[Rfam]
RNA sequence: AGAAUAGUAUUGUUAAUGCCGAAGACCGUAGGUGCGUAUGCUUAAUUUCCUACCGAGGUAGCCAACAACGAAUAUUGUUGCCCUUGUGUGUCUUCGAAGAAAACCGCAAGGGUUUUUUAUUGAAAAA
Numbered sequence: 001a002g003a004a005u006a007g008u009a010u011u012g013u014u015a016a017u018g019c020c021g022a023a024g025a026c027c028g029u030a031g032g033u034g035c036g037u038a039u040g041c042u043u044a045a046u047u048u049c050c051u052a053c054c055g056a057g058g059u060a061g062c063c064a065a066c067a068a069c070g071a072a073u074a075u076u077g078u079u080g081c082c083c084u085u086g087u088g089u090g091u092c093u094u095c096g097a098a099g100a101a102a103a104c105c106g107c108a109a110g111g112g113u114u115u116u117u118u119a120u121u122g123a124a125a126a127a
Stems, first nucleotide, its partner, number of pairs: 028053005034041002081112008